[Rfam]
RNA sequence: CGAGAGUGCAUUGUAGUUGCAUUGCAUGAAUAUUUGAAAGUGCAGUACUUCUGCAGUGCAACCCUUG
Numbered sequence: 001c002g003a004g005a006g007u008g009c010a011u012u013g014u015a016g017u018u019g020c021a022u023u024g025c026a027u028g029a030a031u032a033u034u035u036g037a038a039a040g041u042g043c044a045g046u047a048c049u050u051c052u053g054c055a056g057u058g059c060a061a062c063c064c065u066u067g
Base pairs, nucleotide, nucleotide: 001067002066003065004064006063007060008059009058010057011056012055013054014053015052016051019048021046022045023044024043025042026041027040
Rfam assigns this 67-nucleotide RNA sequence from Nasonia vitripennis to the family "mir-33 microRNA precursor family". The family's consensus secondary structure was predicted with PFOLD. Taxonomically the source falls in Nasonia (Eukaryota, Panarthropoda, Mandibulata, Allotriocarida).